[Rfam]
RNA sequence: GCAGCCCGCUAGGCGAUCGCCGUAUCCUAACGGAUAGGGAGGAAAGUCCGGGCAGCGUAGGACAAGGCAGUUGCUAACGGCAACCGGAGGAAACUCUAGGGAAAGUGCCACAGAAACAAAACAGCCCCGCCUUGGUGGAGCUACGAUGAAACGAGUGCGGUAAGAGCGCACAGUCCGGCAUGGUGACAUGUCGGGGAGGUAAACCCAGCCUGCUGCAAGGAGGAUCACACUAAAGAGUUGUCCGCUCGUGAUCCGCUAACCGCUCGAAUAACGUGGCAACACGCUAUCUAGAUAGAUGGUCGCCCCAGACAGAACCCGGCUUAUCGGCGCGCUGCAUCA
Numbered sequence: 001g002c003a004g005c006c007c008g009c010u011a012g013g014c015g016a017u018c019g020c021c022g023u024a025u026c027c028u029a030a031c032g033g034a035u036a037g038g039g040a041g042g043a044a045a046g047u048c049c050g051g052g053c054a055g056c057g058u059a060g061g062a063c064a065a066g067g068c069a070g071u072u073g074c075u076a077a078c079g080g081c082a083a084c085c086g087g088a089g090g091a092a093a094c095u096c097u098a099g100g101g102a103a104a105g106u107g108c109c110a111c112a113g114a115a116a117c118a119a120a121a122c123a124g125c126c127c128c129g130c131c132u133u134g135g136u137g138g139a140g141c142u143a144c145g146a147u148g149a150a151a152c153g154a155g156u157g158c159g160g161u162a163a164g165a166g167c168g169c170a171c172a173g174u175c176c177g178g179c180a181u182g183g184u185g186a187c188a189u190g191u192c193g194g195g196g197a198g199g200u201a202a203a204c205c206c207a208g209c210c211u212g213c214u215g216c217a218a219g220g221a222g223g224a225u226c227a228c229a230c231u232a233a234a235g236a237g238u239u240g241u242c243c244g245c246u247c248g249u250g251a252u253c254c255g256c257u258a259a260c261c262g263c264u265c266g267a268a269u270a271a272c273g274u275g276g277c278a279a280c281a282c283g284c285u286a287u288c289u290a291g292a293u294a295g296a297u298g299g300u301c302g303c304c305c306c307a308g309a310c311a312g313a314a315c316c317c318g319g320c321u322u323a324u325c326g327g328c329g330c331g332c333u334g335c336a337u338c339a
Base pairs, nucleotide, nucleotide: 001335002334003333004332005331007329008328009327010326011324012304013303014302015301016300017299018298020039021038023036024035025034026033027032044322045321046320048319049318050317051316052315053215054214055213056212060243061242062241063240065211066210067209068208070084071083072082073081074080085099086097087096088095089094100206101205105204106203107200108199109198122145124141125140127138128137129136130135155171156170157169158168159167174196175194176193177192178191179190180189181188182187219261220260223253224252225251226250227249228248235247236246237245238244268287269286270285272283273282274281275280
RNA: Bacterial RNase P class A
Organism: Candidatus Saccharibacteria bacterium RAAC3_TM7_1